Shown here is a 122-nucleotide RNA sequence from Artemisia annua, a member of the family "mir-399 microRNA precursor family". The literature on the family includes a 2004 paper in Mol Cell by Jones-Rhoades and Bartel, "Computational Identification of Plant MicroRNAs and Their Targets, Including a Stress-Induced miRNA". mir-399 was identified in both Arabidopsis thaliana and Oryza sativa computationally and was later experimentally verified. mir-399 is thought to target mRNAs coding for a phosphatase transporter. The mature sequence is excised from the 3' arm of the hairpin. NCBI's taxonomy places the organism under Eukaryota, Viridiplantae, Streptophyta, eudicotyledons, Artemisia. It scores 64 bits against the family's covariance model.
RNA sequence: UGGUGCAUUACUGGGCAAGAUCUCUUUAGGCAGCUAUCCACUUUACUGUUUCUUGUUUGCUUAAAACAUAAUUAGACAGUAAUGGAUAAACUGCCAAAGGAGAUUUGCCCAGCAAUCCAUCG
Numbered sequence: 001u002g003g004u005g006c007a008u009u010a011c012u013g014g015g016c017a018a019g020a021u022c023u024c025u026u027u028a029g030g031c032a033g034c035u036a037u038c039c040a041c042u043u044u045a046c047u048g049u050u051u052c053u054u055g056u057u058u059g060c061u062u063a064a065a066a067c068a069u070a071a072u073u074a075g076a077c078a079g080u081a082a083u084g085g086a087u088a089a090a091c092u093g094c095c096a097a098a099g100g101a102g103a104u105u106u107g108c109c110c111a112g113c114a115a116u117c118c119a120u121c122g
Stems, first nucleotide, its partner, number of pairs: 005118001007116003011112009022102004029095005035089001